[Rfam]
RNA: Glycine riboswitch aptamer
Organism: Henriciella algicola
RNA sequence: CGCUGGAAAGAGGCAAGCGGGCCGUCAGAAGACCCGCAGCAGGCCUCGCCGAAGGAGCAAGCCGCUUCGACCUCCUCACCGCGAGCGAAGUCGAAGAUGGCGGAAUCUCUCAGGCACCGAGACAGCG
Dot-bracket structure: (((((.....((((............................)))).(((((..(((.................................................))))).))).......)))))